[Rfam]
RNA sequence: GGUCAAGAGCGCCAGCGCCAAGCCCCGGCUCGCUGGCCGGCAACCCUCCAACCGCGGUGGGGUGCCCCGGGUGAUGACCAGGUUUCCCGACGAAAGUCGAGGAACAAGCGCGGGUC
Numbered sequence: 001g002g003u004c005a006a007g008a009g010c011g012c013c014a015g016c017g018c019c020a021a022g023c024c025c026c027g028g029c030u031c032g033c034u035g036g037c038c039g040g041c042a043a044c045c046c047u048c049c050a051a052c053c054g055c056g057g058u059g060g061g062g063u064g065c066c067c068c069g070g071g072u073g074a075u076g077a078c079c080a081g082g083u084u085u086c087c088c089g090a091c092g093a094a095a096g097u098c099g100a101g102g103a104a105c106a107a108g109c110g111c112g113g114g115u116c
Stems, first nucleotide, its partner, number of pairs: 001079004009038001011037006021030002039066003044062003048057002082105005088099004

A member of the RNA family "SAM (S-adenosyl methionine) riboswitch aptamer" from Rhodococcus xishaensis, 116 nucleotides long. Its Rfam clan is "SAM clan".